[Rfam]
RNA sequence: GGUUUCCAUUAGUGCAAAUCCAAUCCCCUGAAUUUCAAAUGAGAAGGAGUUCUCCUUUGGUAAUAAAUGAUUAUCCAUUAAGCAGAGGAAAUCUUAU
Numbered sequence: 001g002g003u004u005u006c007c008a009u010u011a012g013u014g015c016a017a018a019u020c021c022a023a024u025c026c027c028c029u030g031a032a033u034u035u036c037a038a039a040u041g042a043g044a045a046g047g048a049g050u051u052c053u054c055c056u057u058u059g060g061u062a063a064u065a066a067a068u069g070a071u072u073a074u075c076c077a078u079u080a081a082g083c084a085g086a087g088g089a090a091a092u093c094u095u096a097u
Stems, first nucleotide, its partner, number of pairs: 009023002012020001052087003057077001059075006
RNA: Plastid-rps12 3UTR RNA